Background:
This 33-nucleotide RNA belongs to the Rfam family "DUF805b RNA". The base pairs follow the family's consensus structure, which is taken from published work. Its Rfam clan is "DUF805 clan".
RNA sequence: AUACCGUUAGCCGAAAAGGUAAAAGAGUAGGCA
Numbered sequence: 001a002u003a004c005c006g007u008u009a010g011c012c013g014a015a016a017a018g019g020u021a022a023a024a025g026a027g028u029a030g031g032c033a
Stems, first nucleotide, its partner, number of pairs: 003020003010032003